A member of the RNA family "Saccharopolyspora sRNA 350" from Streptomyces kasugaensis, 513 nucleotides long. The source organism's lineage runs through Bacteria, Bacillati, Actinomycetes, Streptomycetaceae and Streptomyces.
RNA sequence: CGGUAGCUGAACUGCCCGCGCGCAUCCGGGGCGGUGAGCGGUUCGUCGCCGAGGUGGUCGCCGCCGGCCAGCGCGGCGAGCACGGUCUCGUCGCCGUACUUGCCGGUGCCGAGCCGGUCCACCCGGCCGUGGACGAUCAGCACCAGCCGGUCCCCGGGCGCGCCCGCCUCGGCGAUCAGCUCGCCGGGGGCGUAGUCGUGCCGGACGAACCGCUCGCCGAGCGCCCUCAGCACCGCGGUAUCGGUGACCUCCCGCAGCGCGGGCAGUUCGCGCAGUUCCUCGGGGAUGAUCGCGGCCUCGGUGCCGGUGAUGUCGAAAUCGAUGCGCCCGUCGCCGACGGUGUACGCCAGCCGGCGGUUGACGCGAUAGGUGCCACCGGCGACCUGCACCCAGGGCAGCAGCCGCAGCAGCCAGCGGGAGGUGAUGCCCUGCAUCUGCGGUGCGGUCUUGGUGGUGGUCGCCAGAUUCCGCGCGGCGGUGGUGCUCAGACUCGACGCGGUAAGAGAGCCCUCA
Numbered sequence: 001c002g003g004u005a006g007c008u009g010a011a012c013u014g015c016c017c018g019c020g021c022g023c024a025u026c027c028g029g030g031g032c033g034g035u036g037a038g039c040g041g042u043u044c045g046u047c048g049c050c051g052a053g054g055u056g057g058u059c060g061c062c063g064c065c066g067g068c069c070a071g072c073g074c075g076g077c078g079a080g081c082a083c084g085g086u087c088u089c090g091u092c093g094c095c096g097u098a099c100u101u102g103c104c105g106g107u108g109c110c111g112a113g114c115c116g117g118u119c120c121a122c123c124c125g126g127c128c129g130u131g132g133a134c135g136a137u138c139a140g141c142a143c144c145a146g147c148c149g150g151u152c153c154c155c156g157g158g159c160g161c162g163c164c165c166g167c168c169u170c171g172g173c174g175a176u177c178a179g180c181u182c183g184c185c186g187g188g189g190g191c192g193u194a195g196u197c198g199u200g201c202c203g204g205a206c207g208a209a210c211c212g213c214u215c216g217c218c219g220a221g222c223g224c225c226c227u228c229a230g231c232a233c234c235g236c237g238g239u240a241u242c243g244g245u246g247a248c249c250u251c252c253c254g255c256a257g258c259g260c261g262g263g264c265a266g267u268u269c270g271c272g273c274a275g276u277u278c279c280u281c282g283g284g285g286a287u288g289a290u291c292g293c294g295g296c297c298u299c300g301g302u303g304c305c306g307g308u309g310a311u312g313u314c315g316a317a318a319u320c321g322a323u324g325c326g327c328c329c330g331u332c333g334c335c336g337a338c339g340g341u342g343u344a345c346g347c348c349a350g351c352c353g354g355c356g357g358u359u360g361a362c363g364c365g366a367u368a369g370g371u372g373c374c375a376c377c378g379g380c381g382a383c384c385u386g387c388a389c390c391c392a393g394g395g396c397a398g399c400a401g402c403c404g405c406a407g408c409a410g411c412c413a414g415c416g417g418g419a420g421g422u423g424a425u426g427c428c429c430u431g432c433a434u435c436u437g438c439g440g441u442g443c444g445g446u447c448u449u450g451g452u453g454g455u456g457g458u459c460g461c462c463a464g465a466u467u468c469c470g471c472g473c474g475g476c477g478g479u480g481g482u483g484c485u486c487a488g489a490c491u492c493g494a495c496g497c498g499g500u501a502a503g504a505g506a507g508c509c510c511u512c513a
Base pairs, nucleotide, nucleotide: 006390008388009387011385015381018328020327022325023324027321028320029319032315037311039309040308042306045305047303048302049301050300051299052298054233055232058229060227063224064223065111066110067109068108075103077102078101079100080099082097083096084095085094086093117222118221120219123216126213127212129210130209131206134203135202140197142196143195148192149191153189154188155187157185158184159183162177165174166173167172236294237293240290241289242288243287245285249283250282254278256277257276258275259271260270261269329342330341331340332339351379352378353377354376356374357373361371362370391431392430393429394428395427396426397425399423400422403418405416407415437476438475440473442471443470444469445468448464449463450462451461452460480509481508482507484505485504486503